[Rfam]
RNA sequence: UCCACUUGCCCUUUCGGGCGUUUCCUCCCUAAGACUUCAGGCCGCCUCCGGGCGGCUUUUUCUUUUUUCGCU
Numbered sequence: 001u002c003c004a005c006u007u008g009c010c011c012u013u014u015c016g017g018g019c020g021u022u023u024c025c026u027c028c029c030u031a032a033g034a035c036u037u038c039a040g041g042c043c044g045c046c047u048c049c050g051g052g053c054g055g056c057u058u059u060u061u062c063u064u065u066u067u068u069c070g071c072u
Base pairs, nucleotide, nucleotide: 008019009018010017011016040057041056042055043054044053045052046051
Makes More Granules Regulator RNA (mmgR): a 72-nucleotide RNA from Methylobrevis albus. Clan: suhB sRNA clan. Taxonomically the source falls in Methylobrevis (Bacteria, Pseudomonadati, Pseudomonadota, Hyphomicrobiales). A search with the family's covariance model found it, with a score of 63 bits. From the family's description: SuhB later renamed mmgR (makes more granules regulator) was a putative non-coding RNA found multiple times in the Agrobacterium tumefaciens genome and related alpha-proteobacteria. Other non-coding RNAs uncovered in the same analysis include: speF, ybhL, metA, and serC.Several studies inSinorhizobium meliloti showed that suhB element is indeed a non-coding RNA:firstly it was detected on Northern blot and called Sm8RNA, secondly in an RNAseq study referred to as SmelC689.The mutant phenotype's (strain lacking the small RNA) cytoplasm contains higher content of polyhydroxybutyrate (PBH)storage granules than wild type strain. Pairs were carried over by alignment from the consensus structure.